[Rfam]
RNA sequence: AUUCCGGUUGAUCCUGCCGGAGGCCAUUGCUAUCGGAGUCCGAUUUAGCCAUGCUAGUUGCACGGGUUUAGACCCGUAGCAGAAAGCUCAGUAACACGUGGCCAAACUGCCCUAUGGACAAGAACAACCUCGGGAAACUGAGGCUAAUUCUUGAUAUAGCUCUCAUGCUGGAGUGCAGAGAGCUAGAAACGUUCCGGCGCCAUAGGAUGUGGCUGCGGCCGAUUAGGUAGACGGUGAGGUAACGGCCCACCGUGCCGAUAAUCGGUACAGGUUGUGAGAGCAAGAGCCUGGAGACGGUAUCUGAGACAAGAUACCGGGCCCUACGGGGCGCAGCAGGCGCGAAACCUUUACACUGCACGCCAGUGCGAUAGGGGGACUCCCGAAGUGCGAGGGCAUAUAGCCCUCGCUUUUCCACACCCUAAGGCGGUGUGGGAAUAAGAACUGGGCAAGACCGGUGCCAGCCGCCGCGGUAAUACCGGCAGUUCGAGUGAUGGCCGAUAUUAUUG
Numbered sequence: 001a002u003u004c005c006g007g008u009u010g011a012u013c014c015u016g017c018c019g020g021a022g023g024c025c026a027u028u029g030c031u032a033u034c035g036g037a038g039u040c041c042g043a044u045u046u047a048g049c050c051a052u053g054c055u056a057g058u059u060g061c062a063c064g065g066g067u068u069u070a071g072a073c074c075c076g077u078a079g080c081a082g083a084a085a086g087c088u089c090a091g092u093a094a095c096a097c098g099u100g101g102c103c104a105a106a107c108u109g110c111c112c113u114a115u116g117g118a119c120a121a122g123a124a125c126a127a128c129c130u131c132g133g134g135a136a137a138c139u140g141a142g143g144c145u146a147a148u149u150c151u152u153g154a155u156a157u158a159g160c161u162c163u164c165a166u167g168c169u170g171g172a173g174u175g176c177a178g179a180g181a182g183c184u185a186g187a188a189a190c191g192u193u194c195c196g197g198c199g200c201c202a203u204a205g206g207a208u209g210u211g212g213c214u215g216c217g218g219c220c221g222a223u224u225a226g227g228u229a230g231a232c233g234g235u236g237a238g239g240u241a242a243c244g245g246c247c248c249a250c251c252g253u254g255c256c257g258a259u260a261a262u263c264g265g266u267a268c269a270g271g272u273u274g275u276g277a278g279a280g281c282a283a284g285a286g287c288c289u290g291g292a293g294a295c296g297g298u299a300u301c302u303g304a305g306a307c308a309a310g311a312u313a314c315c316g317g318g319c320c321c322u323a324c325g326g327g328g329c330g331c332a333g334c335a336g337g338c339g340c341g342a343a344a345c346c347u348u349u350a351c352a353c354u355g356c357a358c359g360c361c362a363g364u365g366c367g368a369u370a371g372g373g374g375g376a377c378u379c380c381c382g383a384a385g386u387g388c389g390a391g392g393g394c395a396u397a398u399a400g401c402c403c404u405c406g407c408u409u410u411u412c413c414a415c416a417c418c419c420u421a422a423g424g425c426g427g428u429g430u431g432g433g434a435a436u437a438a439g440a441a442c443u444g445g446g447c448a449a450g451a452c453c454g455g456u457g458c459c460a461g462c463c464g465c466c467g468c469g470g471u472a473a474u475a476c477c478g479g480c481a482g483u484u485c486g487a488g489u490g491a492u493g494g495c496c497g498a499u500a501u502u503a504u505u506g
Stems, first nucleotide, its partner, number of pairs: 004020005022496010033383002035380007042340001048338003052335003057080003062077006087293003097217007106210002111206007119153004128143006158184007167176002191198002219265003226256003231253006238246001268290004272283004295316006318329004346372001348371003354367005387407008412432007439485006452479004461468002
RNA: Archaeal small subunit ribosomal RNA, nucleotides 1 to 506
Organism: halophilic archaeon